[Rfam]
RNA sequence: GCAGUGGGGCGAUCUGUCGCGCCCUCUCUCCUAGAGGGUGAGGAACGUCCGGGCAACAAAGAGCACCAUACUUCCUAACGGGAAGUCAUCCGUGAGGGUGAAGUAGCGUAACAGAGAAUGACCGCCCUACGUCGUGUGGGGUAAGGGUGAAAAGGUGGGGUAAGAGCCCACCGAGCCUGCAGUGAUGUAGACUGCCGUACGCCUUAUGGGUUGCAAGAUCAUGUAAACCGACGCUAUGAGGGUUGCUCGCCCCAGUCGGAGGGUAGAUCGCACCGAGGUAGGUGGUGACACCUAUCCCAGAUAAAUGACAGAUACUCCACGAGGUCUCUCGAGGAGGACAGAACCCGGCUUAUAGCCUCACUGCCCUU
Numbered sequence: 001g002c003a004g005u006g007g008g009g010c011g012a013u014c015u016g017u018c019g020c021g022c023c024c025u026c027u028c029u030c031c032u033a034g035a036g037g038g039u040g041a042g043g044a045a046c047g048u049c050c051g052g053g054c055a056a057c058a059a060a061g062a063g064c065a066c067c068a069u070a071c072u073u074c075c076u077a078a079c080g081g082g083a084a085g086u087c088a089u090c091c092g093u094g095a096g097g098g099u100g101a102a103g104u105a106g107c108g109u110a111a112c113a114g115a116g117a118a119u120g121a122c123c124g125c126c127c128u129a130c131g132u133c134g135u136g137u138g139g140g141g142u143a144a145g146g147g148u149g150a151a152a153a154g155g156u157g158g159g160g161u162a163a164g165a166g167c168c169c170a171c172c173g174a175g176c177c178u179g180c181a182g183u184g185a186u187g188u189a190g191a192c193u194g195c196c197g198u199a200c201g202c203c204u205u206a207u208g209g210g211u212u213g214c215a216a217g218a219u220c221a222u223g224u225a226a227a228c229c230g231a232c233g234c235u236a237u238g239a240g241g242g243u244u245g246c247u248c249g250c251c252c253c254a255g256u257c258g259g260a261g262g263g264u265a266g267a268u269c270g271c272a273c274c275g276a277g278g279u280a281g282g283u284g285g286u287g288a289c290a291c292c293u294a295u296c297c298c299a300g301a302u303a304a305a306u307g308a309c310a311g312a313u314a315c316u317c318c319a320c321g322a323g324g325u326c327u328c329u330c331g332a333g334g335a336g337g338a339c340a341g342a343a344c345c346c347g348g349c350u351u352a353u354a355g356c357c358u359c360a361c362u363g364c365c366c367u368u
Stems, first nucleotide, its partner, number of pairs: 001364010011353001012313007020040008045351001047349001049348005054213004061248004066209005071085005086101001088099004102204002106202005122146002124142008154172006173195001174193002177190005217269004228259005240252004277296008